[Rfam]
RNA: Small nucleolar RNA SNORD58
RNA sequence: UUGCUGUGAUGACUAUCUUAGGACACCUUUGGAAUUCCCCAUGAAAAAAUAAGAUUUUUCUGAGCAAC
Numbered sequence: 001u002u003g004c005u006g007u008g009a010u011g012a013c014u015a016u017c018u019u020a021g022g023a024c025a026c027c028u029u030u031g032g033a034a035u036u037c038c039c040c041a042u043g044a045a046a047a048a049a050u051a052a053g054a055u056u057u058u059u060c061u062g063a064g065c066a067a068c
Stems, first nucleotide, its partner, number of pairs: 001067004